[Rfam]
RNA sequence: AUACCUUUCUCGGCCUUUUGGCUAAGAUCAAGUAUAGCAUCUGUUUUUAUCAGUCUAAUAUCUGAUAUAUGGGCCAUGUGUCCACUUUGGUAUUAAAUUUAUUUUUUUGGGAGAGUCCUUGUAAUAGCUUGCUACUGGGGCUCCCAUGUGUCGCCUAGGGGUUGCACUACUACCUAGGCCUGGCGCACUCCAA
Numbered sequence: 001a002u003a004c005c006u007u008u009c010u011c012g013g014c015c016u017u018u019u020g021g022c023u024a025a026g027a028u029c030a031a032g033u034a035u036a037g038c039a040u041c042u043g044u045u046u047u048u049a050u051c052a053g054u055c056u057a058a059u060a061u062c063u064g065a066u067a068u069a070u071g072g073g074c075c076a077u078g079u080g081u082c083c084a085c086u087u088u089g090g091u092a093u094u095a096a097a098u099u100u101a102u103u104u105u106u107u108u109g110g111g112a113g114a115g116u117c118c119u120u121g122u123a124a125u126a127g128c129u130u131g132c133u134a135c136u137g138g139g140g141c142u143c144c145c146a147u148g149u150g151u152c153g154c155c156u157a158g159g160g161g162u163u164g165c166a167c168u169a170c171u172a173c174c175u176a177g178g179c180c181u182g183g184c185g186c187a188c189u190c191c192a193a
Base pairs, nucleotide, nucleotide: 008027009026010025012023013022014021015020048067049066050065051064052063053062070084071083072082073081074080111145113143114142115141116140117139118138125134126133127132148186149185150184151183152182153181155177156176157175158174159173
Rfam assigns this 193-nucleotide RNA sequence from Dichanthelium oligosanthes to the family "U2 spliceosomal RNA". Rfam's curators write: U2 is a small nuclear RNA (snRNA) component of the spliceosome (involved in pre-mRNA splicing). By type it is a spliceosomal small nuclear RNA. Rfam links the family to the GO terms U2 snRNP, pre-mRNA branch point binding and mRNA branch site recognition. The family has 208 seed sequences and 71,512 matches in Rfam 15.1. The family is grouped with related families in Rfam's "U2 clan". The family's consensus secondary structure is taken from published work.